[Rfam]
The family of this 108-nucleotide RNA from Rhododendron simsii is "Small nucleolar RNA snoR100". Rfam classes the family as an H/ACA-box small nucleolar RNA. For this family Rfam cites "Experimental RNomics: identification of 140 candidates for small non-messenger RNAs in the plant Arabidopsis thaliana" (Marker et al., Curr Biol, 2002).
RNA sequence: GAAUGAAGGAAGCGUGGUAAUAUGCACAGAAAUUGAUUUGGGUCUAUAGGCCUGCCCUCUCUUAUGCCUUUUGGCCUUGAUUUGGGGGCAUGGUUCCAUAAAAAAACA
Numbered sequence: 001g002a003a004u005g006a007a008g009g010a011a012g013c014g015u016g017g018u019a020a021u022a023u024g025c026a027c028a029g030a031a032a033u034u035g036a037u038u039u040g041g042g043u044c045u046a047u048a049g050g051c052c053u054g055c056c057c058u059c060u061c062u063u064a065u066g067c068c069u070u071u072u073g074g075c076c077u078u079g080a081u082u083u084g085g086g087g088g089c090a091u092g093g094u095u096c097c098a099u100a101a102a103a104a105a106a107c108a
Stems, first nucleotide, its partner, number of pairs: 012025004040091001042089003050081001052079001054075003
NCBI's taxonomy places the organism under Eukaryota, Streptophytina, Tracheophyta, eudicotyledons, Rhododendron. Gene Ontology terms of the family: RNA processing and nucleolus.